[Rfam]
Rfam assigns this 81-nucleotide RNA from Ordospora colligata to the family "tRNA". The source organism's lineage runs through Eukaryota, Microsporidia, Ordosporidae, Ordospora and Ordospora colligata.
RNA sequence: GGUGUAAUGGCCGAGCGGUCUAAGGCGCUGGAAUUAGGCUCCAGUCUCUACGAGGCGGGGGUUCGAAUCCCUCUUGCACCA
Numbered sequence: 001g002g003u004g005u006a007a008u009g010g011c012c013g014a015g016c017g018g019u020c021u022a023a024g025g026c027g028c029u030g031g032a033a034u035u036a037g038g039c040u041c042c043a044g045u046c047u048c049u050a051c052g053a054g055g056c057g058g059g060g061g062u063u064c065g066a067a068u069c070c071c072u073c074u075u076g077c078a079c080c081a
Stems, first nucleotide, its partner, number of pairs: 001080007010026003028044005057073005
Background: The base pairs follow the family's consensus structure, which is taken from published work.